[Rfam]
RNA sequence: UGAUGUCAAUGAUGCCAUCUAAAAAUCCCUUACUUACCUUGUUUGAAUAAAAGCUGAUAUCAUCAACAUUAUCUGAGACAUCU
Numbered sequence: 001u002g003a004u005g006u007c008a009a010u011g012a013u014g015c016c017a018u019c020u021a022a023a024a025a026u027c028c029c030u031u032a033c034u035u036a037c038c039u040u041g042u043u044u045g046a047a048u049a050a051a052a053g054c055u056g057a058u059a060u061c062a063u064c065a066a067c068a069u070u071a072u073c074u075g076a077g078a079c080a081u082c083u
Stems, first nucleotide, its partner, number of pairs: 002082001004080004
This 83-nucleotide RNA sequence from Triplophysa rosa belongs to the Rfam family "Small nucleolar RNA SNORD34". The source organism's lineage runs through Eukaryota, Craniata, Otomorpha, Ostariophysi and Triplophysa. snoRNA U34 is found in intron 5 of the ribosomal protein L13a gene in humans. The family's consensus secondary structure was predicted with PFOLD. The family's RNA type in Rfam is C/D-box small nucleolar RNA. A reference for the family is Galardi et al. (2002), "Purified box C/D snoRNPs are able to reproduce site-specific 2'-O-methylation of target RNA in vitro", Mol Cell Biol. It scores 39 bits against the family's covariance model.